[Rfam]
Rfam assigns this 123-nucleotide RNA from Psilopogon haemacephalus to the family "Small Cajal body specific RNA 3". The family has 23 seed sequences and 642 matches in Rfam 15.1. The family is grouped with related families in Rfam's "SCARNA3 clan".
RNA sequence: CUUGGGACCGGUUGUGGGCAAAAGACAUGUUUUGUCCACUGUUGCAGUCUUCCUAGAGCAAAGUGGAGGUCUCUGUCUGCUUUAAGAGAGCAAACUAAACCAGAUCGUUCCCCUCCACACACG
Numbered sequence: 001c002u003u004g005g006g007a008c009c010g011g012u013u014g015u016g017g018g019c020a021a022a023a024g025a026c027a028u029g030u031u032u033u034g035u036c037c038a039c040u041g042u043u044g045c046a047g048u049c050u051u052c053c054u055a056g057a058g059c060a061a062a063g064u065g066g067a068g069g070u071c072u073c074u075g076u077c078u079g080c081u082u083u084a085a086g087a088g089a090g091c092a093a094a095c096u097a098a099a100c101c102a103g104a105u106c107g108u109u110c111c112c113c114u115c116c117a118c119a120c121a122c123g
Stems, first nucleotide, its partner, number of pairs: 004053003009047001011045002014039006024031002065116005073107001075105003079101001081099004
The family's consensus secondary structure was predicted with RNAalifold.
Taxonomically the source falls in Psilopogon (Eukaryota, Gnathostomata, Tetrapoda, Sauropsida).
The match comes from Rfam's covariance-model search (93 bits).
Rfam describes the family as follows. scaRNAs are a specific class of small nuclear RNAs which localise to the Cajal bodies and guide the modification of RNA polymerase II transcribed spliceosomal RNAs U1, U2, U4, U5 and U12.
It is annotated as a small Cajal body RNA.